[Rfam]
RNA: TPP riboswitch aptamer (THI element)
Organism: Cerasibacillus quisquiliarum
RNA sequence: GAUAAGCACUAGGGGUGCCACUUUUGGCUGAGAAGAUUAAUUAUUCUAACCCUUUGGACCCGAUCUAGAUCAUACUAGCGUGGGGAAGUGCAGUAUUCCAUGG
Numbered sequence: 001g002a003u004a005a006g007c008a009c010u011a012g013g014g015g016u017g018c019c020a021c022u023u024u025u026g027g028c029u030g031a032g033a034a035g036a037u038u039a040a041u042u043a044u045u046c047u048a049a050c051c052c053u054u055u056g057g058a059c060c061c062g063a064u065c066u067a068g069a070u071c072a073u074a075c076u077a078g079c080g081u082g083g084g085g086a087a088g089u090g091c092a093g094u095a096u097u098c099c100a101u102g103g
Stems, first nucleotide, its partner, number of pairs: 006091005011053004017028004035046002038043001059084004065078004